[Rfam]
This 105-nucleotide RNA from Listeria kieliensis belongs to the Rfam family "TPP riboswitch aptamer (THI element)". Taxonomically the source falls in Listeria (Bacteria, Bacillati, Bacillota, Caryophanales).
RNA sequence: AUGCAACACUAGGGGGGCCGACUUGCGGCUGAGAUAGAAAGAAUUCUUUCUGACCCUUUGAACCUGUUUGUUAGUGCAAGCGUAGGGAAGUGGAAAUUUUUAAAA
Numbered sequence: 001a002u003g004c005a006a007c008a009c010u011a012g013g014g015g016g017g018c019c020g021a022c023u024u025g026c027g028g029c030u031g032a033g034a035u036a037g038a039a040a041g042a043a044u045u046c047u048u049u050c051u052g053a054c055c056c057u058u059u060g061a062a063c064c065u066g067u068u069u070g071u072u073a074g075u076g077c078a079a080g081c082g083u084a085g086g087g088a089a090g091u092g093g094a095a096a097u098u099u100u101u102a103a104a105a
Stems, first nucleotide, its partner, number of pairs: 007092004011057004017029004036051005063086004067080004
A search with the family's covariance model found it, with a score of 67 bits.